[Rfam]
RNA sequence: AGGCUUCAAAUUGCCUCACGGAUCGCCUAUAUUGCGAAUUGCCGCUUCACGGCGGCUAUGGCGAUAAAUGACGAUCGGAAUAAACCAUUCGGACCCGGGGGCGGUACCCGGCGCCUCCACCUGGAACCGGAACGGAUGACAGCCGGUUCGAGGCGGGGGCGAAAUAGGAUCGACGAGGGCGUAAAGGGUUUGUUUUUGCCCGGUAUGGUUCCACCGUUAUCGGACCUUAAGCACAGUUGCCAAUGACAACUAUGCUCCGGUUGCCGUAGCUGCGUAAUGCAGCGUAAGCUUCCGAAAUCAAGUCCUUGCGCUUAGCAGCGUAAGGCGGGGUCUGGAGGCGCCCGGCAACAGAAGCCUCCGCC
Numbered sequence: 001a002g003g004c005u006u007c008a009a010a011u012u013g014c015c016u017c018a019c020g021g022a023u024c025g026c027c028u029a030u031a032u033u034g035c036g037a038a039u040u041g042c043c044g045c046u047u048c049a050c051g052g053c054g055g056c057u058a059u060g061g062c063g064a065u066a067a068a069u070g071a072c073g074a075u076c077g078g079a080a081u082a083a084a085c086c087a088u089u090c091g092g093a094c095c096c097g098g099g100g101g102c103g104g105u106a107c108c109c110g111g112c113g114c115c116u117c118c119a120c121c122u123g124g125a126a127c128c129g130g131a132a133c134g135g136a137u138g139a140c141a142g143c144c145g146g147u148u149c150g151a152g153g154c155g156g157g158g159g160c161g162a163a164a165u166a167g168g169a170u171c172g173a174c175g176a177g178g179g180c181g182u183a184a185a186g187g188g189u190u191u192g193u194u195u196u197u198g199c200c201c202g203g204u205a206u207g208g209u210u211c212c213a214c215c216g217u218u219a220u221c222g223g224a225c226c227u228u229a230a231g232c233a234c235a236g237u238u239g240c241c242a243a244u245g246a247c248a249a250c251u252a253u254g255c256u257c258c259g260g261u262u263g264c265c266g267u268a269g270c271u272g273c274g275u276a277a278u279g280c281a282g283c284g285u286a287a288g289c290u291u292c293c294g295a296a297a298u299c300a301a302g303u304c305c306u307u308g309c310g311c312u313u314a315g316c317a318g319c320g321u322a323a324g325g326c327g328g329g330g331u332c333u334g335g336a337g338g339c340g341c342c343c344g345g346c347a348a349c350a351g352a353a354g355c356c357u358c359c360g361c362c
Stems, first nucleotide, its partner, number of pairs: 041056005060200005070193001073190004085179002089176003095111005112161007201216004207226002210224003328343004334359006
RNA: Alphaproteobacteria transfer-messenger RNA
Organism: Rhizobiales bacterium GAS113